A member of the RNA family "Streptomyces-metH RNA" from Streptomyces sp. C, 121 nucleotides long. Pairs were carried over by alignment from the consensus structure, which is taken from published work. The sequence is in the family's curated seed alignment. Rfam classes the family as a small RNA.
Nucleotides: 121
Stems, first nucleotide, its partner, number of pairs: 060083004065078004086100002089098003
Number, partner (000 for none) and nucleotide at each position: 001000c002000a003000g004000u005000c006000c007000g008000c009000c010000a011000c012000g013000u014000g015000g016000g017000a018000c019000g020000c021000c022000c023000c024000c025000a026000c027000c028000g029000g030000g031000u032000c033000c034000a035000c036000u037000g038000c039000c040000g041000c042000g043000c044000g045000g046000u047000u048000a049000c050000c051000c052000u053000g054000a055000c056000g057000g058000c059000g060083u061082g062081c063080a064000c065078c066077c067076u068075u069000g070000a071000c072000a073000c074000a075068g076067a077066g078065g079000g080063u081062g082061c083060a084000a085000a086100g087099c088000c089098g090097a091096c092000a093000g094000c095000c096091g097090u098089c099087g100086c101000a102000g103000c104000c105000c106000a107000g108000g109000g110000a111000g112000c113000u114000c115000a116000a117000c118000c119000a120000u121000g